RNA sequence: CAGACCUGAGUACGGCAGGACUACCCGCCGAACUUAAGCAUAUUACUCAGCGGAGGAAAAGAAAACAACCGUGAUUCCCUCAGUCAGCGGCGAGCGAAGAGGGACCGAACUCGUUGCCGAAUCGGGUCUUAAAGGCCUUGAGUUGUGGCAAAAACGCUGCUUUGUGAUUGGUGCGGGAAUGGCGAAAUUCAAGCGCAAAGCAAACCCAUUGCUGAAUACAACCCUUCAUGUGAGUAUUGAGCCAAAGAAGGUGUUAGCCCAUUGAGCCAUGAACCCGAGCAUCUCAUUAAGUAGUUCCAAGAGAGUAGCACUGUUUGGGAAUGCAGUGUCAAGCGGCAGGUAUGUGUCUGCCAAAGUUAUAGACAGAGUAGGAAGACCGAUAUCGAACAAGUAGCGUGAGCGAAAGUUUGAAAAGCACUUUGGAAAGAGAGUGACAUAGAACCUGAAGUCGUGACAAUGACAAU
Numbered sequence: 001c002a003g004a005c006c007u008g009a010g011u012a013c014g015g016c017a018g019g020a021c022u023a024c025c026c027g028c029c030g031a032a033c034u035u036a037a038g039c040a041u042a043u044u045a046c047u048c049a050g051c052g053g054a055g056g057a058a059a060a061g062a063a064a065a066c067a068a069c070c071g072u073g074a075u076u077c078c079c080u081c082a083g084u085c086a087g088c089g090g091c092g093a094g095c096g097a098a099g100a101g102g103g104a105c106c107g108a109a110c111u112c113g114u115u116g117c118c119g120a121a122u123c124g125g126g127u128c129u130u131a132a133a134g135g136c137c138u139u140g141a142g143u144u145g146u147g148g149c150a151a152a153a154a155c156g157c158u159g160c161u162u163u164g165u166g167a168u169u170g171g172u173g174c175g176g177g178a179a180u181g182g183c184g185a186a187a188u189u190c191a192a193g194c195g196c197a198a199a200g201c202a203a204a205c206c207c208a209u210u211g212c213u214g215a216a217u218a219c220a221a222c223c224c225u226u227c228a229u230g231u232g233a234g235u236a237u238u239g240a241g242c243c244a245a246a247g248a249a250g251g252u253g254u255u256a257g258c259c260c261a262u263u264g265a266g267c268c269a270u271g272a273a274c275c276c277g278a279g280c281a282u283c284u285c286a287u288u289a290a291g292u293a294g295u296u297c298c299a300a301g302a303g304a305g306u307a308g309c310a311c312u313g314u315u316u317g318g319g320a321a322u323g324c325a326g327u328g329u330c331a332a333g334c335g336g337c338a339g340g341u342a343u344g345u346g347u348c349u350g351c352c353a354a355a356g357u358u359a360u361a362g363a364c365a366g367a368g369u370a371g372g373a374a375g376a377c378c379g380a381u382a383u384c385g386a387a388c389a390a391g392u393a394g395c396g397u398g399a400g401c402g403a404a405a406g407u408u409u410g411a412a413a414a415g416c417a418c419u420u421u422g423g424a425a426a427g428a429g430a431g432u433g434a435c436a437u438a439g440a441a442c443c444u445g446a447a448g449u450c451g452u453g454a455c456a457a458u459g460a461c462a463a464u
Stems, first nucleotide, its partner, number of pairs: 024055001025053004035042002065072002076104005087095002108358004115150005121144001123142001124138004156296001157294004162290003170280001172278001175275002179270005188240001190239003243247001250260002308329007335352005394401002418429004